[Rfam]
Nucleotides: 148
Base pairs, nucleotide, nucleotide: 001078002077003076004075005074006073007072011068012067013066014065015064016063018047019046020045021044022043023042024041025040026039027038028037029036050062051061052059053058086148087147088146089145090141091140095135101128102127103126104125105124107121108120109119
Number, partner (000 for none) and nucleotide at each position: 001078u002077u003076a004075g005074c006073u007072a008000u009000u010000u011068u012067a013066g014065a015064u016063a017000a018047g019046u020045u021044u022043g023042u024041a025040u026039u027038c028037a029036u030000a031000c032000g033000a034000u035000u036029a037028u038027g039026g040025g041024u042023g043022c044021a045020a046019a047018c048000a049000u050062c051061a052059g053058c054000g055000u056000u057000u058053g059052u060000u061051u062050g063016u064015a065014u066013c067012u068011a069000u070000g071000a072007u073006g074005g075004c076003u077002a078001a079000g080000g081000a082000u083000g084000u085000u086148u087147g088146a089145g090141a091140u092000g093000a094000c095135u096000u097000g098000c099000u100000c101128g102127c103126c104125g105124c106000a107121u108120a109119g110000a111000u112000g113000a114000a115000a116000a117000a118000u119109c120108u121107a122000u123000a124105g125104u126103g127102g128101c129000u130000u131000u132000u133000u134000u135095a136000u137000u138000u139000g140091a141090u142000u143000g144000a145089u146088u147087c148086a
The family of this 148-nucleotide RNA from Enterococcus hirae is "Enterococcus sRNA 2410". On this family, see Sinel et al., Sci Rep 2017: "Small RNAs in vancomycin-resistant Enterococcus faecium involved in daptomycin response and resistance". Produced as 2 transcripts on Northern blot. Expressed in mid, late exponential and early stationary phases of growth. Expression remained uniform under daptomycin exposure. It is annotated as a small RNA. The match comes from Rfam's covariance-model search (63 bits). The source organism's lineage runs through Bacteria, Lactobacillales, Enterococcaceae, Enterococcus and Enterococcus hirae.